The record is a 104-nucleotide RNA from Anaerotignum neopropionicum, which matches "pemK RNA" in Rfam. The match comes from Rfam's covariance-model search (36 bits). It is annotated as a cis-regulatory element. NCBI's taxonomy places the organism under Bacteria, Bacillati, Bacillota, Clostridia, Anaerotignum.
[Rfam]
RNA sequence: AUAAUGAUACUUCUGCCUUGAACGCAUCACCGCAUUGGACAGCCGCCUCAGAACGGGGUGGAGAUGCUGGAGCACUUGUUAAAAUCGGUGUUUUGGCACUAUGA
Number, nucleotide and partner (000 for none) at each position: 001a000002u000003a000004a000005u000006g000007a000008u000009a000010c000011u000012u101013c042014u041015g040016c000017c000018u000019u000020g000021a000022a000023c000024g000025c000026a000027u000028c000029a000030c000031c000032g000033c000034a000035u000036u000037g000038g000039a000040c015041a014042g013043c061044c060045g059046c000047c057048u056049c055050a000051g000052a000053a000054c000055g049056g048057g047058g000059u045060g044061g043062a100063g099064a000065u000066g000067c000068u000069g000070g000071a000072g000073c000074a000075c000076u000077u000078g000079u000080u000081a000082a000083a000084a000085u000086c000087g000088g000089u000090g000091u000092u000093u000094u000095g000096g000097c000098a000099c063100u062101a012102u000103g000104a000